[Rfam]
RNA: Guanidine-I riboswitch aptamer
Organism: Hansschlegelia zhihuaiae
Nucleotides: 110
Stems, first nucleotide, its partner, number of pairs: 007060006015050002020047002022044001023042006061083008085105001087108001091103003
Number, partner (000 for none) and nucleotide at each position: 001000g002000u003000g004000c005000a006000g007060c008059g009058c010057g011056u012055c013000u014000a015050g016049g017000g018000u019000u020047c021046c022044g023042g024041c025040c026039g027038g028037u029000u030000c031000g032000c033000a034000a035000g036000a037028g038027c039026c040025g041024g042023c043000g044022c045000u046021g047020g048000u049016c050015c051000g052000a053000g054000a055012g056011a057010c058009g059008c060007g061083c062082u063081c064080c065079c066078c067077g068076c069000u070000c071000g072000c073000c074000a075000g076068g077067c078066g079065g080064g081063g082062a083061g084000a085105c086000a087108c088000g089000g090000c091103g092102g093101g094000g095000c096000a097000a098000a099000a100000u101093c102092c103091c104000g105085g106000g107000a108087g109000g110000u